[Rfam]
RNA sequence: UCCACCGCGAGGUGGAAUCUGAAGGAAGUCGGCGGCAAAAUCUCGGUCCGACGAACAGAAACUACAUAUAAGGCCGCAAGUGCUGGAUGAGGUUGCUGAACAAACCGAAGUCCUAUACUGUACGGAAGCACUAUGGUAAAUGUAGCGGAUAUAUGAGAUGAAAGUUAUCGUU
Dot-bracket structure: ((((((....))))))...........(.(((..((...(((((((((((...........((((((.....(((...(((((.((((..((((........))))...))))..............)))))..)))..)))))))))))...))))))....))..))).)